[Rfam]
Ribosomal protein L20 leader: a 132-nucleotide RNA from Desulfosporosinus sp. HMP52. It scores 67 bits against the family's covariance model. Rfam classes the family as a cis-regulatory leader. About the family: This family is a putative r-protein leader autoregulatory structure found in B. subtilis and other low-GC Gram-positive bacteria. It is located in the 5' untranslated regions of mRNAs encoding initiation factor 3 followed by ribosomal proteins L35 and L20 (infC-rpmI-rplT). A Rho-independent transcription terminator structure that is probably involved in regulation is included at the 3' end. The family's consensus secondary structure was predicted with CMfinder.

RNA sequence: GAUGUCAAGCAGAAGCCAUCCGCUUCUCACCUUACGGCAUUUGUCGGUAAGGUUCUUCUGGUCCUGAGCUUAAAGUUUGCUUUGUGAUUGUUUAGAAGACGGGUGGUUAUCCAUCCGUCUUUUUGUUUUGAA
Number, nucleotide and partner (000 for none) at each position: 001g000002a000003u000004g000005u000006c000007a000008a000009g000010c000011a027012g026013a025014a024015g023016c022017c000018a000019u000020c000021c000022g016023c015024u014025u013026c012027u011028c000029a053030c052031c051032u000033u000034a048035c047036g000037g044038c043039a000040u000041u000042u000043g038044u037045c000046g000047g035048u034049a000050a000051g031052g030053u029054u000055c000056u000057u000058c000059u000060g000061g000062u000063c000064c000065u000066g000067a000068g000069c000070u000071u000072a000073a000074a000075g000076u000077u000078u000079g000080c000081u000082u000083u000084g000085u000086g000087a000088u000089u000090g000091u000092u000093u000094a000095g000096a000097a000098g119099a118100c117101g116102g115103g114104u113105g112106g111107u000108u000109a000110u000111c106112c105113a104114u103115c102116c101117g100118u099119c098120u000121u000122u000123u000124u000125g000126u000127u000128u000129u000130g000131a000132a000